A member of the RNA family "Transposase-2 RNA" from Parafrankia soli, 67 nucleotides long. The family's RNA type in Rfam is small RNA. The family's consensus secondary structure is taken from published work. Lineage of the source: Bacteria > Bacillati > Actinomycetota > Frankiales > Parafrankia.

RNA sequence: GAAGCGGGAACCCGGUACGGCCAGGGCCGGUCAGACCGGGAGUGCCCCACCGCAAGGUGAGGCGGCC
Numbered sequence: 001g002a003a004g005c006g007g008g009a010a011c012c013c014g015g016u017a018c019g020g021c022c023a024g025g026g027c028c029g030g031u032c033a034g035a036c037c038g039g040g041a042g043u044g045c046c047c048c049a050c051c052g053c054a055a056g057g058u059g060a061g062g063c064g065g066c067c
Stems, first nucleotide, its partner, number of pairs: 011040005018029004044063003048059004